The family of this 93-nucleotide sequence from Theobroma umbraticum is "Small nucleolar RNA snoR8a".
RNA sequence: GAGUUAGUGAUAAUUAUAAAAAAAAAUUCUCGUUCUAACUGGCUUAAUUUGAGCGUGAUGAAUCUCUUACUACACUCAUAAAAUUUGAGCUAC
Numbered sequence: 001g002a003g004u005u006a007g008u009g010a011u012a013a014u015u016a017u018a019a020a021a022a023a024a025a026a027u028u029c030u031c032g033u034u035c036u037a038a039c040u041g042g043c044u045u046a047a048u049u050u051g052a053g054c055g056u057g058a059u060g061a062a063u064c065u066c067u068u069a070c071u072a073c074a075c076u077c078a079u080a081a082a083a084u085u086u087g088a089g090c091u092a093c
Base pairs, nucleotide, nucleotide: 003093004092006091007090
The source organism's lineage runs through Eukaryota, Mesangiospermae, malvids, Byttnerioideae and Theobroma. It is annotated as a C/D-box small nucleolar RNA. The family's consensus secondary structure was predicted with WAR. On this family, see Brown et al., RNA 2001: "Multiple snoRNA gene clusters from Arabidopsis".